[Rfam]
RNA sequence: AUAGGUACUGAUUACUGACGGAUAAUUGUGGAGAACCACAGGGGAAUCAAGUAUUAGAAAGACAAGCCGACCGUCUGGGCAACAUUU
Numbered sequence: 001a002u003a004g005g006u007a008c009u010g011a012u013u014a015c016u017g018a019c020g021g022a023u024a025a026u027u028g029u030g031g032a033g034a035a036c037c038a039c040a041g042g043g044g045a046a047u048c049a050a051g052u053a054u055u056a057g058a059a060a061g062a063c064a065a066g067c068c069g070a071c072c073g074u075c076u077g078g079g080c081a082a083c084a085u086u087u
Stems, first nucleotide, its partner, number of pairs: 004055005009049004015043002017075005028039004066080003

Record summary
A member of the RNA family "ZMP/ZTP riboswitch aptamer (pfl RNA motif)" from Dorea sp. CAG:105, 87 nucleotides long. The base pairs follow the family's consensus structure, which is taken from published work.